[Rfam]
RNA sequence: CUGGAGGACUAAGAAAGUAGGGUCAGUGAAGUCAGUUGAUUCUACUGAUACUAUCCUCCUAAAUGAAAUGGCAGAAGAACAAGGCCUUGCUUGUAAGAUGUGGCUAAGCCUUACUGCAAUUUGCCAACAAUG
Numbered sequence: 001c002u003g004g005a006g007g008a009c010u011a012a013g014a015a016a017g018u019a020g021g022g023u024c025a026g027u028g029a030a031g032u033c034a035g036u037u038g039a040u041u042c043u044a045c046u047g048a049u050a051c052u053a054u055c056c057u058c059c060u061a062a063a064u065g066a067a068a069u070g071g072c073a074g075a076a077g078a079a080c081a082a083g084g085c086c087u088u089g090c091u092u093g094u095a096a097g098a099u100g101u102g103g104c105u106a107a108g109c110c111u112u113a114c115u116g117c118a119a120u121u122u123g124c125c126a127a128c129a130a131u132g
Stems, first nucleotide, its partner, number of pairs: 003059006010050002018044007025036001027034002070125006077117001082112003086108004
RNA: Small Cajal body specific RNA 15
Organism: Ophiophagus hannah